The record is an 84-nucleotide RNA sequence from Paenibacillus crassostreae, which matches "c-di-GMP-I riboswitch aptamer" in Rfam.
[Rfam]
RNA sequence: AUCUUAAUAGGGCAAAACUACUGAAAAGUAGUGACGCAAAGCUAUAGGGACUAAUUCCUAAGGGGAAGUCAGCCAGUUGCAGCA
Number, nucleotide and partner (000 for none) at each position: 001a000002u000003c000004u000005u000006a000007a000008u000009a000010g000011g000012g037013c036014a000015a000016a000017a032018c031019u030020a029021c028022u027023g000024a000025a000026a000027a022028g021029u020030a019031g018032u017033g000034a000035c000036g013037c012038a000039a000040a078041g077042c076043u075044a000045u000046a000047g074048g073049g070050a069051c068052u000053a000054a000055u000056u064057c063058c062059u000060a000061a000062g058063g057064g056065g000066a000067a000068g051069u050070c049071a000072g000073c048074c047075a043076g042077u041078u040079g000080c000081a000082g000083c000084a000

Record summary
The match comes from Rfam's covariance-model search (72 bits). The source organism's lineage runs through Bacteria, Bacillati, Bacillota, Paenibacillaceae and Paenibacillus. From the family's description: GEMM was predicted in a large-scale screen for bacterial structured RNA regulatory elements.